Rfam assigns this 106-nucleotide sequence from Pseudoduganella namucuonensis to the family "Glycine riboswitch aptamer".
RNA sequence: GGGUCAAACUCUGGAGAGCGGCCGCGGCGAAUACGCCGGCGGCCCACCGAAGGGGCGUGCGGACCUCAUCCGCUAUCUCUCAGGUACCAAGGACAGAGGGGUCCGC
Number, nucleotide and partner (000 for none) at each position: 001g000002g000003g000004u000005c000006a000007a000008a000009c098010u097011c096012u095013g094014g000015a000016g000017a000018g000019c000020g044021g043022c042023c041024g040025c039026g000027g000028c000029g000030a000031a000032u000033a000034c000035g000036c000037c000038g000039g025040c024041g023042g022043c021044c020045c000046a085047c084048c083049g081050a080051a000052g000053g079054g078055g077056c000057g000058u000059g073060c072061g071062g070063a000064c000065c000066u000067c000068a000069u000070c062071c061072g060073c059074u000075a000076u000077c055078u054079c053080u050081c049082a000083g048084g047085u046086a000087c000088c000089a000090a000091g000092g000093a000094c013095a012096g011097a010098g009099g000100g000101g000102u000103c000104c000105g000106c000